[Rfam]
RNA: Eukaryotic small subunit ribosomal RNA, nucleotides 1596 to 1752
RNA sequence: CCGCCCGUCGCUCCUACCGAUCGAGUGAUCCGGUGAAUUAUUCGGACCGUGAUGUUCCCGUUAGGGAACGUCUAGGGAAGUUUUGUGAACCUUAUCACUUAAAGGAAGGAGAAGUCGUAACAAGGUUUCCGUAGGUGAACCUGCGGAAGGAUCAUUC
Dot-bracket structure: (.(..((.(.(((((.((..(.(((((((..(((..((.(..(...((..(((((((((....)))))))))..))...)..).))..)))..))))))))..)).)))))..).))...)..).((((((((((....))))))))))........